[Rfam]
The record is a 103-nucleotide RNA from Gracilibacillus thailandensis, which matches "Purine riboswitch aptamer" in Rfam.
Rfam's curators write: Riboswitches are metabolite binding domains within certain messenger RNAs that serve as precision sensors for their corresponding targets. Allosteric rearrangement of mRNA structure is mediated by ligand binding, and this results in modulation of gene expression. A class of riboswitches that selectively recognises guanine and becomes saturated at concentrations as low as 5 nM. In Bacillus subtilis, this mRNA motif is located on at least five separate transcriptional units that together encode 17 genes that are mostly involved in purine transport and purine nucleotide biosynthesis.
RNA sequence: AUAUCAACCAUAAACAUUCGUCGUAUAAUGUUGGGAAUAUGGCCCAAGAGUUUCUACCAGAGCACCGUAAAUUGCUCUGACUACGAGGAGGAUGUAGGAUAUA
Number, nucleotide and partner (000 for none) at each position: 001a000002u000003a000004u000005c000006a000007a000008c000009c000010a000011u000012a000013a000014a000015c000016a000017u000018u089019c088020g000021u086022c085023g084024u083025a082026u000027a000028a000029u049030g000031u047032u046033g045034g044035g043036a000037a000038u000039a000040u000041g000042g000043c035044c034045c033046a032047a031048g000049a029050g000051u000052u000053u000054c000055u000056a000057c000058c079059a078060g077061a076062g075063c074064a073065c000066c000067g000068u000069a000070a000071a000072u000073u064074g063075c062076u061077c060078u059079g058080a000081c000082u025083a024084c023085g022086a021087g000088g019089a018090g000091g000092a000093u000094g000095u000096a000097g000098g000099a000100u000101a000102u000103a000
The family's consensus secondary structure is taken from published work.